[Rfam]
RNA sequence: CAAGGCACAACACCGCUUGGCAGGAGCGGGGGACCCACUUGUGGGCCGUCUCCGGACGGUCCUUGGGGUUAAGUCCUCACGCGCGCGCCCGCUAGGUCGGGUGGCAACCGCGAGGGCCGGGUGACCUCCACCCGAACCCGACAGCUCACCUCGUAGGCGCCGGAGGACCCUUCA
Numbered sequence: 001c002a003a004g005g006c007a008c009a010a011c012a013c014c015g016c017u018u019g020g021c022a023g024g025a026g027c028g029g030g031g032g033a034c035c036c037a038c039u040u041g042u043g044g045g046c047c048g049u050c051u052c053c054g055g056a057c058g059g060u061c062c063u064u065g066g067g068g069u070u071a072a073g074u075c076c077u078c079a080c081g082c083g084c085g086c087g088c089c090c091g092c093u094a095g096g097u098c099g100g101g102u103g104g105c106a107a108c109c110g111c112g113a114g115g116g117c118c119g120g121g122u123g124a125c126c127u128c129c130a131c132c133c134g135a136a137c138c139c140g141a142c143a144g145c146u147c148a149c150c151u152c153g154u155a156g157g158c159g160c161c162g163g164a165g166g167a168c169c170c171u172u173c174a
Stems, first nucleotide, its partner, number of pairs: 001156001006024001026154006036065002066139003074116004119133004
The family of this 174-nucleotide RNA sequence from Knoellia koreensis is "c-di-AMP riboswitch aptamer (ydaO/yuaA leader)". A search with the family's covariance model found it, with a score of 48 bits.